This 105-nucleotide sequence from Musa balbisiana belongs to the Rfam family "Plastid-psbA-1 3UTR RNA". The base pairs follow the family's consensus structure, which was predicted with LocARNA. Its Rfam clan is "Plastid-psbA 3UTR RNA clan".
[Rfam]
RNA sequence: UCGAAGUUUCAUCUACAAAUGGAUAGAUUUUUGUCUUAGUGUAUACGAAUCGUUGCAACAAGUAGCAUACCAUUCUUGCGUUAGCAACAUGUGGUAUGCGUACUU
Numbered sequence: 001u002c003g004a005a006g007u008u009u010c011a012u013c014u015a016c017a018a019a020u021g022g023a024u025a026g027a028u029u030u031u032u033g034u035c036u037u038a039g040u041g042u043a044u045a046c047g048a049a050u051c052g053u054u055g056c057a058a059c060a061a062g063u064a065g066c067a068u069a070c071c072a073u074u075c076u077u078g079c080g081u082u083a084g085c086a087a088c089a090u091g092u093g094g095u096a097u098g099c100g101u102a103c104u105u
Stems, first nucleotide, its partner, number of pairs: 008023005060105005065099006072092001074089001076087002
Background:
Lineage of the source: Eukaryota > Viridiplantae > Euphyllophyta > commelinids > Musa. It is annotated as a cis-regulatory element.